[Rfam]
RNA: SAM-I/IV (S-adenosyl methionine) riboswitch aptamer
RNA sequence: AAUAAUUAUCAAGAAUCUCGAAAGGAGAUAGCAACCUGCAAUAACAAGCAAGGUGCUAAAGCGAUAAGCCAAUAUUUUGGAAAAAAUGUUAACACA
Numbered sequence: 001a002a003u004a005a006u007u008a009u010c011a012a013g014a015a016u017c018u019c020g021a022a023a024g025g026a027g028a029u030a031g032c033a034a035c036c037u038g039c040a041a042u043a044a045c046a047a048g049c050a051a052g053g054u055g056c057u058a059a060a061g062c063g064a065u066a067a068g069c070c071a072a073u074a075u076u077u078u079g080g081a082a083a084a085a086a087u088g089u090u091a092a093c094a095c096a
Stems, first nucleotide, its partner, number of pairs: 006067005015029005030057003035053003038049002042092001044090001069080004